ZMP/ZTP riboswitch aptamer (pfl RNA motif): a 78-nucleotide RNA sequence from Nocardioides perillae. It scores 49 bits against the family's covariance model. Taxonomically the source falls in Nocardioides (Bacteria, Actinomycetes, Propionibacteriales, Nocardioidaceae). The base pairs follow the family's consensus structure, which is taken from published work.

RNA sequence: UGGCGGCCACACGACUGGCGCGGGUGGGUCCACCACCGGGGAGUGACGCCGGGAGCAUCGACCGCCUGGGUGCUCCCU
Dot-bracket structure: ...((((..(((..(([[[[...((((.....))))..))..)))..))))...(((((...]]]]..))))).....